[Rfam]
RNA sequence: AUUGCAAAUUGGAGGCCACAGCAGAAGUGCUCAUGGCCCAGCCCUGUCAGACUACAGUUAAUCUGCAAAUUCUGGU
Numbered sequence: 001a002u003u004g005c006a007a008a009u010u011g012g013a014g015g016c017c018a019c020a021g022c023a024g025a026a027g028u029g030c031u032c033a034u035g036g037c038c039c040a041g042c043c044c045u046g047u048c049a050g051a052c053u054a055c056a057g058u059u060a061a062u063c064u065g066c067a068a069a070u071u072c073u074g075g076u
Stems, first nucleotide, its partner, number of pairs: 012044001014043003020076001022074005027039001029037001048065004053060002
RNA: Mammalian CPEB3 ribozyme